Shown here is a 207-nucleotide RNA from Streptantibioticus cattleyicolor, a member of the family "Actinobacteria sRNA Ms_IGR-5". The base pairs follow the family's consensus structure.

RNA sequence: ACACAAGAAGGGAGGUGGUCCGACGAAUGAAUGCAUAUCGGACGUGUGAGGUGGCUGCGGGCUAACGCCGCGCGCCUCGUCCGCUGAUGCGUACGUGUGUGCAUGGCGGGCCGCAAUCCAACGCAGUCACCCGACCCGUGGGCUACCGGACUCGUCCGGCCGGUCUCGGAACGACAGUUCCGAGCAGCAGCCCGCGGGUCGUCUGCC
Numbered sequence: 001a002c003a004c005a006a007g008a009a010g011g012g013a014g015g016u017g018g019u020c021c022g023a024c025g026a027a028u029g030a031a032u033g034c035a036u037a038u039c040g041g042a043c044g045u046g047u048g049a050g051g052u053g054g055c056u057g058c059g060g061g062c063u064a065a066c067g068c069c070g071c072g073c074g075c076c077u078c079g080u081c082c083g084c085u086g087a088u089g090c091g092u093a094c095g096u097g098u099g100u101g102c103a104u105g106g107c108g109g110g111c112c113g114c115a116a117u118c119c120a121a122c123g124c125a126g127u128c129a130c131c132c133g134a135c136c137c138g139u140g141g142g143c144u145a146c147c148g149g150a151c152u153c154g155u156c157c158g159g160c161c162g163g164u165c166u167c168g169g170a171a172c173g174a175c176a177g178u179u180c181c182g183a184g185c186a187g188c189a190g191c192c193c194g195c196g197g198g199u200c201g202u203c204u205g206c207c
Stems, first nucleotide, its partner, number of pairs: 015058005060112004067107004072102003132201013146163004151158001